Rfam assigns this 73-nucleotide RNA from Medicago truncatula to the family "MIR5272 microRNA precursor family".
RNA sequence: UUUGAUGUGAAUUAAUUUAUGUUUGAAUAUACUCACUUAAAAGUGAUACUUAUGAGUUAUGUUGUUUGAAUAC
Dot-bracket structure: ..........((.(((((..((..(.((.((((........)))))).)..))))))))).............

It scores 67 bits against the family's covariance model.